[Rfam]
RNA: mir-50 microRNA precursor family
RNA sequence: UAGUGUCUGAUAUGUCUGGUAUUCUUGGGUUCAUUUUUUGAUAUGUGAACCAGCAUAUUAGACAUAUCGGAUAUUGG
Numbered sequence: 001u002a003g004u005g006u007c008u009g010a011u012a013u014g015u016c017u018g019g020u021a022u023u024c025u026u027g028g029g030u031u032c033a034u035u036u037u038u039u040g041a042u043a044u045g046u047g048a049a050c051c052a053g054c055a056u057a058u059u060a061g062a063c064a065u066a067u068c069g070g071a072u073a074u075u076g077g
Stems, first nucleotide, its partner, number of pairs: 008069015028051004